[Rfam]
Shown here is a 184-nucleotide RNA from Photobacterium aquimaris, a member of the family "GcvB RNA". On this family, see Urbanowski et al., Mol Microbiol 2000: "The gcvB gene encodes a small untranslated RNA involved in expression of the dipeptide and oligopeptide transport systems in Escherichia coli".
RNA sequence: GCAAUGUUGAUUAACAUUUUGUGUUUUGCCCUCUGGCUAACCGCUCAAUCAGCAUUGCGAUGUUGUGUUUGCAUAUUGUCCGGAUCCUGCCGGAUAGGUAGUUAUCUACCUCUUUACUUCCUGUAUUUUGACUUAUAUGUCAAAGUAAUUGUUAGCACUGCGCCCCAACGCAGUGCUAUUUUUU
Numbered sequence: 001g002c003a004a005u006g007u008u009g010a011u012u013a014a015c016a017u018u019u020u021g022u023g024u025u026u027u028g029c030c031c032u033c034u035g036g037c038u039a040a041c042c043g044c045u046c047a048a049u050c051a052g053c054a055u056u057g058c059g060a061u062g063u064u065g066u067g068u069u070u071g072c073a074u075a076u077u078g079u080c081c082g083g084a085u086c087c088u089g090c091c092g093g094a095u096a097g098g099u100a101g102u103u104a105u106c107u108a109c110c111u112c113u114u115u116a117c118u119u120c121c122u123g124u125a126u127u128u129u130g131a132c133u134u135a136u137a138u139g140u141c142a143a144a145g146u147a148a149u150u151g152u153u154a155g156c157a158c159u160g161c162g163c164c165c166c167a168a169c170g171c172a173g174u175g176c177u178a179u180u181u182u183u184u
Stems, first nucleotide, its partner, number of pairs: 009050004016045001021044003024040002028037001030035001078095006097110005125152001129151001154177008
Rfam classes the family as a non-coding RNA gene. Pairs were carried over by alignment from the consensus structure, which is taken from published work. The gcvB gene encodes a small untranslated RNA involved in expression of the dipeptide and oligopeptide transport systems in Escherichia coli. Included several unknown homologues in alignment (Bateman A pers obs). It base-pairs with SorC. This interaction triggers the degradation of GcvB by RNase E, alleviating the GcvB-mediated mRNA repression of other amino acid-related transport and metabolic genes. It scores 74 bits against the family's covariance model.